[Rfam]
RNA sequence: UGAAUUAGAGGGCAAAGCUGUUGUGAAACAGUGACGCAAAGCUAAAGGGACUUUUAUAAGUUAGCCAGUUACUCGA
Numbered sequence: 001u002g003a004a005u006u007a008g009a010g011g012g013c014a015a016a017g018c019u020g021u022u023g024u025g026a027a028a029c030a031g032u033g034a035c036g037c038a039a040a041g042c043u044a045a046a047g048g049g050a051c052u053u054u055u056a057u058a059a060g061u062u063a064g065c066c067a068g069u070u071a072c073u074c075g076a
Base pairs, nucleotide, nucleotide: 012037013036017032018031019030020029021028022027040070041069042068043067047066048065049062050061051060
RNA: c-di-GMP-I riboswitch aptamer